[Rfam]
This 286-nucleotide RNA from Plenodomus lingam belongs to the Rfam family "Fungal signal recognition particle RNA". Gene Ontology terms of the family: signal recognition particle, plasma membrane targeting, signal recognition particle, endoplasmic reticulum targeting and SRP-dependent cotranslational protein targeting to membrane, signal sequence recognition.
RNA sequence: ACCUGUAACGGGUCUUUACCAGAAGCCUCGCCGUCAUCCCCAUACACCUCCCUUUUCCCAUGCCACAGCAGGAGCCCAGUUCGAGCCCCGCGGCGUCCUUUGCAUUUUAUGCAACGCGUCCACUCACCCGGGUAACCAGUGAUGCUGGAGGGACUUAAGCGAUGAAUGCAACCUUGACGAGGGAAGAAAUUCUGCAGUCGGGCAUUUACCGUGGGGCGGCGGUGCUGGAUUACUCUCGUUGUUUGGUUGGGGGGUGUGUGGUGGGCUGGUGUGGGCGACUGGUAUU
Numbered sequence: 001a002c003c004u005g006u007a008a009c010g011g012g013u014c015u016u017u018a019c020c021a022g023a024a025g026c027c028u029c030g031c032c033g034u035c036a037u038c039c040c041c042a043u044a045c046a047c048c049u050c051c052c053u054u055u056u057c058c059c060a061u062g063c064c065a066c067a068g069c070a071g072g073a074g075c076c077c078a079g080u081u082c083g084a085g086c087c088c089c090g091c092g093g094c095g096u097c098c099u100u101u102g103c104a105u106u107u108u109a110u111g112c113a114a115c116g117c118g119u120c121c122a123c124u125c126a127c128c129c130g131g132g133u134a135a136c137c138a139g140u141g142a143u144g145c146u147g148g149a150g151g152g153a154c155u156u157a158a159g160c161g162a163u164g165a166a167u168g169c170a171a172c173c174u175u176g177a178c179g180a181g182g183g184a185a186g187a188a189a190u191u192c193u194g195c196a197g198u199c200g201g202g203c204a205u206u207u208a209c210c211g212u213g214g215g216g217c218g219g220c221g222g223u224g225c226u227g228g229a230u231u232a233c234u235c236u237c238g239u240u241g242u243u244u245g246g247u248u249g250g251g252g253g254g255u256g257u258g259u260g261g262u263g264g265g266c267u268g269g270u271g272u273g274g275g276c277g278a279c280u281g282g283u284a285u286u
Stems, first nucleotide, its partner, number of pairs: 001013003017284006027275005033270004037265003040261013063246003066241004071236004076228005081222003085217009117150001119149004124142004130137002155159001163208007174201005183192003